[Rfam]
RNA sequence: GCCCGGAUGGCGAAACUGGUAGACGCAAGGGACUUAAAAUCCCUCGACCGCAAGGUCAUGUGGGUUCGAUCCCCACUCCGGGCA
Numbered sequence: 001g002c003c004c005g006g007a008u009g010g011c012g013a014a015a016c017u018g019g020u021a022g023a024c025g026c027a028a029g030g031g032a033c034u035u036a037a038a039a040u041c042c043c044u045c046g047a048c049c050g051c052a053a054g055g056u057c058a059u060g061u062g063g064g065u066u067c068g069a070u071c072c073c074c075a076c077u078c079c080g081g082g083c084a
Stems, first nucleotide, its partner, number of pairs: 001083007010026003028044005060076005
Dot-bracket structure: (((((((..(((...........))).(((((.......)))))...............(((((.......)))))))))))).
RNA: tRNA
Organism: Noviluteimonas dokdonensis